[Rfam]
RNA sequence: GUGGGGUGUGGGCUGGGCCCCAGGAGUGGGGCCUGGGCAACCCUGUGUGUUGAGGAAGGAAGGCUGGGCCCCCGCUCCGCGGGCCUGACCCCA
Numbered sequence: 001g002u003g004g005g006g007u008g009u010g011g012g013c014u015g016g017g018c019c020c021c022a023g024g025a026g027u028g029g030g031g032c033c034u035g036g037g038c039a040a041c042c043c044u045g046u047g048u049g050u051u052g053a054g055g056a057a058g059g060a061a062g063g064c065u066g067g068g069c070c071c072c073c074g075c076u077c078c079g080c081g082g083g084c085c086u087g088a089c090c091c092c093a
Stems, first nucleotide, its partner, number of pairs: 002093002005090003010086005016080001023078009032068003036064001038062001041059002043055002

Shown here is a 93-nucleotide RNA from Bos taurus, a member of the family "mir-940 microRNA precursor family". On this family, see Lui et al., Cancer Res 2007: "Patterns of known and novel small RNAs in human cervical cancer". Its family is annotated with RISC complex and miRNA-mediated post-transcriptional gene silencing in the Gene Ontology. The family's consensus secondary structure was predicted with RNAalifold.